[Rfam]
Nucleotides: 071
Stems, first nucleotide, its partner, number of pairs: 001054008011022004028044005036070002039067001
Number, partner (000 for none) and nucleotide at each position: 001054c002053c003052a004051g005050c006049a007048c008047c009000u010000a011022c012021c013020g014019c015000g016000a017000c018000g019014g020013c021012g022011g023000g024000a025000a026000a027000a028044g029043c030042c031041g032040c033000a034000a035000g036070c037069c038000c039067a040032g041031c042030g043029g044028u045000c046000u047008g048007g049006u050005g051004c052003u053002g054001g055000c056000c057000a058000c059000u060000a061000c062000a063000c064000u065000u066000u067039u068000u069037g070036g071000g